[Rfam]
RNA sequence: CGAUGUCGCGCGGGAGAGCCCACUUGAGUGUGGGCGCCGAAGGAGCAACUCCUCCCCGGAAUCUCUCAGGCACAGAUACCGCACGACGAAG
Numbered sequence: 001c002g003a004u005g006u007c008g009c010g011c012g013g014g015a016g017a018g019c020c021c022a023c024u025u026g027a028g029u030g031u032g033g034g035c036g037c038c039g040a041a042g043g044a045g046c047a048a049c050u051c052c053u054c055c056c057c058g059g060a061a062u063c064u065c066u067c068a069g070g071c072a073c074a075g076a077u078a079c080c081g082c083a084c085g086a087c088g089a090a091g
Base pairs, nucleotide, nucleotide: 006086007085008084010082011081012080013079019034020033021032022031036071037070038069039067040066043065044064045063049059050058
The family of this 91-nucleotide sequence from Lentzea aerocolonigenes is "Glycine riboswitch aptamer". The pairing is the family consensus, mapped onto this sequence. A reference for the family is Mandal et al. (2004), "A glycine-dependent riboswitch that uses cooperative binding to control gene expression", Science. This family represents the bacterial glycine riboswitch.